[Rfam]
RNA sequence: UGCGUAUCAAAGCAUACCAAUGGAAACAUUGGGACGCAAAGCUACGGGUCUAAGGGUAUGUGCCUAGGAUCGCCGGGUUGCCGCA
Dot-bracket structure: ...........((...((((((....))))))...))..((((.((((((....(((....)))...)))..)))))))......